About this RNA
ACEA small nucleolar RNA U3: a 238-nucleotide RNA sequence from Plasmodium malariae. The base pairs follow the family's consensus structure, which is taken from published work. Its family is annotated with nucleolus and RNA processing in the Gene Ontology. By type it is a C/D-box small nucleolar RNA. Rfam describes the family as follows. Small nucleolar RNAs (snoRNAs) are involved in the processing and modification of rRNA in the nucleolus. There are two main classes of snoRNAs: the box C/D class, and the box H/ACA class. U3 snoRNA is a member of the box C/D class. Indeed, the box C/D element is a subset of the six short sequence elements found in all U3 snoRNAs, namely boxes A, A', B, C, C', and D. The U3 snoRNA secondary structure is characterised by a small 5' domain (with boxes A and A'), and a larger 3' domain (with boxes B, C, C', and D), the two domains being linked by a single-stranded hinge. Boxes B and C form the B/C motif, which appears to be exclusive to U3 snoRNAs, and boxes C' and D form the C'/D motif. The latter is functionally similar to the C/D motifs found in other snoRNAs. The 5' domain and the hinge region act as a pre-rRNA-binding domain. The 3' domain has conserved protein-binding sites. Both the box B/C and box C'/D motifs are sufficient for nuclear retention of U3 snoRNA. The box C'/D motif is also necessary for nucleolar localisation, stability and hyper-methylation of U3 snoRNA. Both box B/C and C'/D motifs are involved in specific protein interactions and are necessary for the rRNA processing functions of U3 snoRNA. The organism belongs to Plasmodium, within Eukaryota. The family is grouped with related families in Rfam's "U3 clan".
RNA sequence: UCGACGAAUACUUAGUCAAGAUCAUUGCUAUAGUAUUUGUGAUGUUUUAUUGUUAUAAAUAAACAGAUUAUCAAAAGUGAUGAUGAAUUGGCGCGGCUCCUAAUUUGAAAUUCUUUUCGUUUUUUCACAGUUUCGAAAGAAAUUGUUAAAACAUUGAAAUUUAGAUGAUAAUUUUUAGCAAAAAAAAGUAACUCCUUUUUUGCUAAAUAAUGUGAGCUUUGUCGUCUGCUGAACUUAC
Dot-bracket structure: (((.(.(.((((.....(..(....)..)..)))))..))))...(...(((((.......)))))).......((((..............(((((.(.(...(((.......((..(..................................)...)).........))).(.((.(.........................).)).)....).)....))))).......))))..